Background: Rfam assigns this 134-nucleotide sequence from Clostridium sp. DL-VIII to the family "c-di-AMP riboswitch aptamer (ydaO/yuaA leader)". Rfam describes the family as follows. This family represents a conserved RNA structure found upstream of the ydaO and yuaA genes in Bacillus subtilis and related genes in other bacteria. The match comes from Rfam's covariance-model search (100 bits). The source organism's lineage runs through Bacteria, Bacillota, Clostridia, Eubacteriales and Clostridium.
RNA sequence: AUAUUAAUAUCGCUGAAUCAUUUUGAGCGGGAGAACCAACUAUUGGGGUUAAUCUUAUCAUUUCUGAUAAGUAGGGUUAAUUAUCUUCAAUCCGAAUCCGUCAGCUAAUCUCGCAAGCGUUGAAGAGAAGUGUU
Numbered sequence: 001a002u003a004u005u006a007a008u009a010u011c012g013c014u015g016a017a018u019c020a021u022u023u024u025g026a027g028c029g030g031g032a033g034a035a036c037c038a039a040c041u042a043u044u045g046g047g048g049u050u051a052a053u054c055u056u057a058u059c060a061u062u063u064c065u066g067a068u069a070a071g072u073a074g075g076g077u078u079a080a081u082u083a084u085c086u087u088c089a090a091u092c093c094g095a096a097u098c099c100g101u102c103a104g105c106u107a108a109u110c111u112c113g114c115a116a117g118c119g120u121u122g123a124a125g126a127g128a129a130g131u132g133u134u
Stems, first nucleotide, its partner, number of pairs: 011119004018026003027114006037045002046099003054071004074093004